Rfam assigns this 102-nucleotide sequence from Dreissena polymorpha to the family "Vault RNA".
Pairs were carried over by alignment from the consensus structure, which is taken from published work.
This family of RNAs are found as part of the enigmatic vault ribonucleoprotein complex.
It is annotated as a non-coding RNA gene.
The organism belongs to Dreissena, within Eukaryota.
A search with the family's covariance model found it, with a score of 52 bits.
RNA sequence: GGGCUGGCGUAGUCGAGUGGUUACUUCGAUUUCAAAAACCGUUUCAGCGAACUGUUCGUGGGUUCAAACCCCAUAGAACCACUGACGCCAUUCAGCCCUUUU
Number, nucleotide and partner (000 for none) at each position: 001g000002g097003g096004c095005u094006g093007g092008c000009g000010u000011a000012g086013u085014c084015g083016a000017g082018u081019g080020g079021u000022u000023a000024c000025u068026u067027c000028g065029a064030u000031u000032u000033c000034a000035a000036a000037a000038a000039c000040c000041g000042u000043u000044u000045c000046a000047g000048c000049g000050a000051a000052c000053u000054g000055u000056u000057c000058g000059u000060g000061g000062g000063u000064u029065c028066a000067a026068a025069c000070c000071c000072c000073a000074u000075a000076g000077a000078a000079c020080c019081a018082c017083u015084g014085a013086c012087g000088c000089c000090a000091u000092u007093c006094a005095g004096c003097c002098c000099u000100u000101u000102u000